[Rfam]
RNA sequence: ACGACACUCUGGAAAGCGUUCGUCUUGCAAAGGGCGAGCCACCGAAGGGGUAAGCGCGGGGUUCCCCCGCGUGAAAGCUCUCAGGUUCCGUGACAGAGGGGGUCCG
Numbered sequence: 001a002c003g004a005c006a007c008u009c010u011g012g013a014a015a016g017c018g019u020u021c022g023u024c025u026u027g028c029a030a031a032g033g034g035c036g037a038g039c040c041a042c043c044g045a046a047g048g049g050g051u052a053a054g055c056g057c058g059g060g061g062u063u064c065c066c067c068c069g070c071g072u073g074a075a076a077g078c079u080c081u082c083a084g085g086u087u088c089c090g091u092g093a094c095a096g097a098g099g100g101g102g103u104c105c106g
Stems, first nucleotide, its partner, number of pairs: 005100001007098005018039007041086003044082002048080003
Notes: A member of the RNA family "Glycine riboswitch aptamer" from Sphingomonas rubra, 106 nucleotides long. Taxonomically the source falls in Sphingomonas (Bacteria, Pseudomonadati, Pseudomonadota, Sphingomonadales).